[Rfam]
RNA: MIR530 microRNA precursor family
Organism: Trema orientale
RNA sequence: ACCAAUAUGUCGCCUUUAUCUGCGUUUGCACCUGCACCUUAACUGGUUUCUCUUCUUGUCUUCUUAGUUCUUAGGAUGAGAAGAUGAAGGAGCAUGGCUAGAGGUGCAGGCGCAGACACAGGUGAAUGCCAUCUUGGU
Numbered sequence: 001a002c003c004a005a006u007a008u009g010u011c012g013c014c015u016u017u018a019u020c021u022g023c024g025u026u027u028g029c030a031c032c033u034g035c036a037c038c039u040u041a042a043c044u045g046g047u048u049u050c051u052c053u054u055c056u057u058g059u060c061u062u063c064u065u066a067g068u069u070c071u072u073a074g075g076a077u078g079a080g081a082a083g084a085u086g087a088a089g090g091a092g093c094a095u096g097g098c099u100a101g102a103g104g105u106g107c108a109g110g111c112g113c114a115g116a117c118a119c120a121g122g123u124g125a126a127u128g129c130c131a132u133c134u135u136g137g138u
Base pairs, nucleotide, nucleotide: 001138002137003136004135005134007132008131009130012129013128015126016125017124018123019122020121021120022119024117025116026115027114028113029112031110032109033108034107035106036105037104038103039102
Dot-bracket structure: (((((.(((..((.((((((((.((((((.(((((((((..............................................................))))))))).)))))).)))))))).))))).)))))